[Rfam]
RNA sequence: AAAUAAGGACCCUCUACUAAAGGCCGCCACGUCCUGUGGCGAACGUAGAGGUCAGCACAUCCUAUCAAGCGCU
Number, nucleotide and partner (000 for none) at each position: 001a000002a000003a000004u000005a000006a000007g000008g000009a000010c000011c051012c050013u049014c048015u047016a046017c045018u000019a000020a000021a000022g000023g000024c000025c000026g040027c039028c038029a037030c036031g000032u000033c000034c000035u000036g030037u029038g028039g027040c026041g000042a000043a000044c000045g017046u016047a015048g014049a013050g012051g011052u000053c000054a073055g072056c071057a000058c069059a000060u000061c000062c000063u000064a000065u000066c000067a000068a000069g058070c000071g056072c055073u054

Rfam assigns this 73-nucleotide RNA from Bacillus mesophilus to the family "Bacillaceae-1 RNA".
The family's RNA type in Rfam is small RNA.
The organism belongs to Bacillus, within Bacteria.